[Rfam]
RNA sequence: GGGGGCGUAAUGGUUUCGACGGGGAACGUGUUUGCUUGGGAUGCGAGCCGGGUUGCCGCCAGGACCGUAAAAAGGGCGGAAGGCUUUAAUUGCCGAAGAUAACUACGCUUUAGCUGCUUAAUUGCAGUCUAACCUCUUCUCCUCUGUGCUCUCGGUGAGGAUGUAAGGGGUCAUUUAAGAGAGCUGGCUUCGACCAAUUCUCGGAGGUCCAAGCGAGAUUUAUCGAGAUAGCCUGACCAACGCUCUGUCUGCCGUGCGGAAGGAAGGCGAAAUCUAAAACGACAGACUACGCUCGUAGUGUCCUUUGUGGGCAUUUCUUCGGACGCUGGGUUCGACUCCCGCCGCCUCCACCA
Numbered sequence: 001g002g003g004g005g006c007g008u009a010a011u012g013g014u015u016u017c018g019a020c021g022g023g024g025a026a027c028g029u030g031u032u033u034g035c036u037u038g039g040g041a042u043g044c045g046a047g048c049c050g051g052g053u054u055g056c057c058g059c060c061a062g063g064a065c066c067g068u069a070a071a072a073a074g075g076g077c078g079g080a081a082g083g084c085u086u087u088a089a090u091u092g093c094c095g096a097a098g099a100u101a102a103c104u105a106c107g108c109u110u111u112a113g114c115u116g117c118u119u120a121a122u123u124g125c126a127g128u129c130u131a132a133c134c135u136c137u138u139c140u141c142c143u144c145u146g147u148g149c150u151c152u153c154g155g156u157g158a159g160g161a162u163g164u165a166a167g168g169g170g171u172c173a174u175u176u177a178a179g180a181g182a183g184c185u186g187g188c189u190u191c192g193a194c195c196a197a198u199u200c201u202c203g204g205a206g207g208u209c210c211a212a213g214c215g216a217g218a219u220u221u222a223u224c225g226a227g228a229u230a231g232c233c234u235g236a237c238c239a240a241c242g243c244u245c246u247g248u249c250u251g252c253c254g255u256g257c258g259g260a261a262g263g264a265a266g267g268c269g270a271a272a273u274c275u276a277a278a279a280c281g282a283c284a285g286a287c288u289a290c291g292c293u294c295g296u297a298g299u300g301u302c303c304u305u306u307g308u309g310g311g312c313a314u315u316u317c318u319u320c321g322g323a324c325g326c327u328g329g330g331u332u333c334g335a336c337u338c339c340c341g342c343c344g345c346c347u348c349c350a351c352c353a
Stems, first nucleotide, its partner, number of pairs: 001349007020321007032310004038304006044295005049067003053063001056079005109132002113128005133170006140161004148184006187214004192209004199228005231268004237262001241256003247287004325342002328340003
This 353-nucleotide RNA from Heliobacterium mobile belongs to the Rfam family "transfer-messenger RNA".
The source organism's lineage runs through Bacteria, Bacillota, Clostridia, Heliobacteriaceae and Heliobacterium.
Rfam's curators write: Bacterial tmRNA, also known as 10Sa RNA or SsrA, is named for its dual tRNA and mRNA-like properties. Its role is to liberate the mRNA from a stalled ribosome.
The match comes from Rfam's covariance-model search (187 bits).